[Rfam]
Nucleotides: 336
Stems, first nucleotide, its partner, number of pairs: 001041003004024007029038003046334004051329005058322006071314010082303001084302002087299001089297001132284008140273002143271005149264001151261007161201003165197003168193007175184003203209001210253005221244003228237003
Number, partner (000 for none) and nucleotide at each position: 001041g002040u003039u004024g005023g006022g007021u008020a009019g010018g011000u012000u013000u014000g015000a016000c017000u018010c019009c020008u021007g022006c023005c024004u025000g026000u027000a028000g029038c030037c031036c032000g033000u034000g035000c036031g037030g038029g039003a040002a041001c042000u043000u044000u045000u046334g047333g048332a049331a050000c051329g052328c053327a054326g055325g056000g057000a058322g059321c060320a061319u062318g063317g064000g065000a066000a067000u068000g069000a070000a071314g072313a073312u074311c075310a076309g077308u078307u079306u080305c081000a082303a083000c084302u085301u086000a087299a088000a089297g090000u091000c092000a093000c094000c095000a096000u097000u098000g099000g100000g101000u102000g103000g104000c105000u106000u107000c108000c109000a110000g111000a112000g113000c114000u115000u116000g117000c118000a119000a120000u121000g122000a123000u124000u125000a126000c127000g128000g129000c130000u131000u132284g133283g134282g135281g136280g137279u138278g139277u140273c141272c142000a143271c144270u145269u146268g147267g148000a149264g150000u151261c152260c153259g154258g155257u156256g157255u158000u159000u160000g161201g162200g163199c164000a165197u166196u167195g168193g169192c170191a171190c172189g173188c174187u175184g176183g177182c178000g179000u180000a181000g182177g183176c184175c185000u186000g187174g188173g189172c190171g191170u192169g193168c194000u195167c196166a197165a198000g199163g200162c201161u202000a203209u204000u205000g206000a207000a208000u209203a210253g211252c212251u213250g214249g215000g216000c217000a218000a219000a220000g221244c222243g223242u224000g225000a226000g227000g228237c229236u230235g231000g232000c233000a234000a235230c236229a237228g238000a239000g240000c241000a242223a243222c244221g245000a246000a247000a248000a249214c250213u251212g252211g253210c254000a255157g256156c257155a258154c259153u260152g261151g262000u263000u264149c265000a266000g267147u268146c269145a270144a271143g272141g273140g274000a275000c276000u277139g278138c279137a280136u281135c282134c283133c284132c285000g286000a287000u288000g289000u290000c291000a292000c293000u294000g295000c296000c297089u298000c299087u300000g301085g302084a303082u304000a305080g306079g307078g308077g309076c310075u311074g312073g313072u314071c315000g316000a317063c318062c319061a320060u321059g322058c323000a324000a325055c326054c327053u328052g329051c330000a331049u332048u333047c334046u335000u336000u
Notes:
The family of this 336-nucleotide sequence from Coemansia aciculifera is "Metazoan signal recognition particle RNA". It is annotated as a non-coding RNA gene. Taxonomically the source falls in Coemansia (Eukaryota, Opisthokonta, Kickxellomycetes, Kickxellaceae). Pairs were carried over by alignment from the consensus structure, which is taken from published work. The match comes from Rfam's covariance-model search (82 bits).